[Rfam]
RNA sequence: UUCGCGGUGAACUCCCACGCCCCCUCGGUCUCCACCAGGUUGCGGUCGCCGAAGUAGUCCCCGUCGGCCAGGGUGCCCAGCACGGUCUCGUCCCCGUACUUGCCCGCACCGACCUUGCUGACCUUGCCGUGCGCGAUCAGCACGACCUGGUCGGCGGCCUGCCCGGCCGCCACGAUGGUCUCCCCCGCGCUGAACUCGCGCUGGGUGAACCGCCCGGCCAGCGCGGUCAGCACCGCCAUGUCCUCGAAGCCGCGCAGGAUCGACAGCUCGCCCAGCUCGGCGGGGAUCACCCGCACUUCGGCGCCGGUGGCCACGAACUCGAUGCGCCCGUCACCCACCGUGUAGCUCAGCCGCCGGUUCACCCGGUACACGCCACCGUUGACCUGCACCCAGGGCAGCACCCGCAGCAGCCAGCGCGAGGUGAUCCCCUGCAUCUGGGGGACCGACUUGGUGGUGGUCGACAGGUUCCGCGCGGCGGCGGUCCCCAGGCUCAGCUGGGACUGACUCU
Numbered sequence: 001u002u003c004g005c006g007g008u009g010a011a012c013u014c015c016c017a018c019g020c021c022c023c024c025u026c027g028g029u030c031u032c033c034a035c036c037a038g039g040u041u042g043c044g045g046u047c048g049c050c051g052a053a054g055u056a057g058u059c060c061c062c063g064u065c066g067g068c069c070a071g072g073g074u075g076c077c078c079a080g081c082a083c084g085g086u087c088u089c090g091u092c093c094c095c096g097u098a099c100u101u102g103c104c105c106g107c108a109c110c111g112a113c114c115u116u117g118c119u120g121a122c123c124u125u126g127c128c129g130u131g132c133g134c135g136a137u138c139a140g141c142a143c144g145a146c147c148u149g150g151u152c153g154g155c156g157g158c159c160u161g162c163c164c165g166g167c168c169g170c171c172a173c174g175a176u177g178g179u180c181u182c183c184c185c186c187g188c189g190c191u192g193a194a195c196u197c198g199c200g201c202u203g204g205g206u207g208a209a210c211c212g213c214c215c216g217g218c219c220a221g222c223g224c225g226g227u228c229a230g231c232a233c234c235g236c237c238a239u240g241u242c243c244u245c246g247a248a249g250c251c252g253c254g255c256a257g258g259a260u261c262g263a264c265a266g267c268u269c270g271c272c273c274a275g276c277u278c279g280g281c282g283g284g285g286a287u288c289a290c291c292c293g294c295a296c297u298u299c300g301g302c303g304c305c306g307g308u309g310g311c312c313a314c315g316a317a318c319u320c321g322a323u324g325c326g327c328c329c330g331u332c333a334c335c336c337a338c339c340g341u342g343u344a345g346c347u348c349a350g351c352c353g354c355c356g357g358u359u360c361a362c363c364c365g366g367u368a369c370a371c372g373c374c375a376c377c378g379u380u381g382a383c384c385u386g387c388a389c390c391c392a393g394g395g396c397a398g399c400a401c402c403c404g405c406a407g408c409a410g411c412c413a414g415c416g417c418g419a420g421g422u423g424a425u426c427c428c429c430u431g432c433a434u435c436u437g438g439g440g441g442a443c444c445g446a447c448u449u450g451g452u453g454g455u456g457g458u459c460g461a462c463a464g465g466u467u468c469c470g471c472g473c474g475g476c477g478g479c480g481g482u483c484c485c486c487a488g489g490c491u492c493a494g495c496u497g498g499g500a501c502u503g504a505c506u507c508u
Base pairs, nucleotide, nucleotide: 006390007389008388009387011385015381019327022324025322026321027320028319031316032315038312039311040310041309042308043307045305047303048302049301050300051299052298054233055232058229061226062225063224064223065111066110067109075103077102079100080099082097083096084095085094117222118221119220120219122217123216126213127212129210130209131206132205134203135202140197144195149191150190154188155187156186157185162177166173237293240290241289244286245285250282253279254278256277257276261270262269329342330341331340352378353377356374357373360372391431392430393429394428395427397425399423400422401421403418404417405416407415437476440473443470445468446467447465448464449463450462452460477507478506480502481501482500484499485498486497487496488495
Saccharopolyspora sRNA 350: a 508-nucleotide RNA sequence from Kutzneria viridogrisea.